[Rfam]
SAM riboswitch aptamer (S box leader): a 110-nucleotide sequence from Planifilum fulgidum.
The organism belongs to Planifilum, within Bacteria.
It scores 101 bits against the family's covariance model.
RNA sequence: CUCUUAUCCAGAGCGGCGGAGGGACUGGCCCGAUGAAGCCCGGCAACCCCGGACACCGUCCGGAAGGUGCCAAUUCCUGCGGAAACCUUCGGGUUUCCGAGAGAUAAGAG
Numbered sequence: 001c002u003c004u005u006a007u008c009c010a011g012a013g014c015g016g017c018g019g020a021g022g023g024a025c026u027g028g029c030c031c032g033a034u035g036a037a038g039c040c041c042g043g044c045a046a047c048c049c050c051g052g053a054c055a056c057c058g059u060c061c062g063g064a065a066g067g068u069g070c071c072a073a074u075u076c077c078u079g080c081g082g083a084a085a086c087c088u089u090c091g092g093g094u095u096u097c098c099g100a101g102a103g104a105u106a107a108g109a110g
Stems, first nucleotide, its partner, number of pairs: 001110008013041001015040003021031003025079001027077002042071004047067002049063004075102001080099006